Rfam assigns this 349-nucleotide sequence from Butyrivibrio sp. INlla14 to the family "Bacterial RNase P class A".
The match comes from Rfam's covariance-model search (325 bits).
Rfam classes the family as a ribozyme.
The organism belongs to Butyrivibrio, within Bacteria.
RNA sequence: UGAGUAGGACAGGUGAUCGCUGCCAUGCAAACGAAAGGGCAUGGGAGAGGAAAGUCCGGGCUUCAUAGGGCAGGAUGCCAGAUAACGUCUGGUGGAGGUGACUCCCAGGAUAGUGCAACAGAGAGAUACCGCCUGAUUUAAUCAGGUAAGGGUGGAAAGGCAGUGUAAGAGACUACCGUGCUGGUGGUAACAUCAGUAGCCAUGUAAACCCCAUCCGAAGCAAGACCGAAUAGAAAGCUAUGAGUCGGCCCGGCUCGCUUUCAGGUGGGUCGCUUGAGGCUGUCGGCGACGGCAGUCCUAGAUAGAUGAUCAUCCACGACAUAACCCGGCUUACAGUCCUACUCAUUAA
Numbered sequence: 001u002g003a004g005u006a007g008g009a010c011a012g013g014u015g016a017u018c019g020c021u022g023c024c025a026u027g028c029a030a031a032c033g034a035a036a037g038g039g040c041a042u043g044g045g046a047g048a049g050g051a052a053a054g055u056c057c058g059g060g061c062u063u064c065a066u067a068g069g070g071c072a073g074g075a076u077g078c079c080a081g082a083u084a085a086c087g088u089c090u091g092g093u094g095g096a097g098g099u100g101a102c103u104c105c106c107a108g109g110a111u112a113g114u115g116c117a118a119c120a121g122a123g124a125g126a127u128a129c130c131g132c133c134u135g136a137u138u139u140a141a142u143c144a145g146g147u148a149a150g151g152g153u154g155g156a157a158a159g160g161c162a163g164u165g166u167a168a169g170a171g172a173c174u175a176c177c178g179u180g181c182u183g184g185u186g187g188u189a190a191c192a193u194c195a196g197u198a199g200c201c202a203u204g205u206a207a208a209c210c211c212c213a214u215c216c217g218a219a220g221c222a223a224g225a226c227c228g229a230a231u232a233g234a235a236a237g238c239u240a241u242g243a244g245u246c247g248g249c250c251c252g253g254c255u256c257g258c259u260u261u262c263a264g265g266u267g268g269g270u271c272g273c274u275u276g277a278g279g280c281u282g283u284c285g286g287c288g289a290c291g292g293c294a295g296u297c298c299u300a301g302a303u304a305g306a307u308g309a310u311c312a313u314c315c316a317c318g319a320c321a322u323a324a325c326c327c328g329g330c331u332u333a334c335a336g337u338c339c340u341a342c343u344c345a346u347u348a349a
Stems, first nucleotide, its partner, number of pairs: 001345010012314007020047002023044006052332003056329005061220004068251004073216005078092005093107001094105004108211002113209002115205003129151002131147007159177002162174003178200001179198008224271004233262006242256005278297008